[Rfam]
RNA: U8 small nucleolar RNA
RNA sequence: CCAUCAGUUUGGUACAUCCUUACUUAUUCCUCUUUUUUUUUUUUUUUUUUUUUUUUGGAGAGGGGUAAAUGAUGAUUGGAGCUUGAUUAGUCUCUCUGCAGCAGCUUGGAGAUUGGCAACAAACUCCUUGUUGCUCCUUUCUGAU
Numbered sequence: 001c002c003a004u005c006a007g008u009u010u011g012g013u014a015c016a017u018c019c020u021u022a023c024u025u026a027u028u029c030c031u032c033u034u035u036u037u038u039u040u041u042u043u044u045u046u047u048u049u050u051u052u053u054u055u056u057g058g059a060g061a062g063g064g065g066u067a068a069a070u071g072a073u074g075a076u077u078g079g080a081g082c083u084u085g086a087u088u089a090g091u092c093u094c095u096c097u098g099c100a101g102c103a104g105c106u107u108g109g110a111g112a113u114u115g116g117c118a119a120c121a122a123a124c125u126c127c128u129u130g131u132u133g134c135u136c137c138u139u140u141c142u143g144a145u
Stems, first nucleotide, its partner, number of pairs: 024068003028064008089097002101134005108127004